[Rfam]
RNA sequence: AUAGACUACUAGGGGUGCCCAUGGCGUGGGCUGAGAGGAAGCAGUUGAGCUUCUGACUCUUACAGACCUGAUCUGGUUAAUACCAGCGGAGGGAAGUAGUAGGCAUAGCGU
Numbered sequence: 001a002u003a004g005a006c007u008a009c010u011a012g013g014g015g016u017g018c019c020c021a022u023g024g025c026g027u028g029g030g031c032u033g034a035g036a037g038g039a040a041g042c043a044g045u046u047g048a049g050c051u052u053c054u055g056a057c058u059c060u061u062a063c064a065g066a067c068c069u070g071a072u073c074u075g076g077u078u079a080a081u082a083c084c085a086g087c088g089g090a091g092g093g094a095a096g097u098a099g100u101a102g103g104c105a106u107a108g109c110g111u
Base pairs, nucleotide, nucleotide: 006099007098008097009096010095011060012059013058014057017031018030019029020028021027038053039052040051041050042049067092068091069090073086074085075084076083
RNA: TPP riboswitch aptamer (THI element)
Organism: Virgibacillus salexigens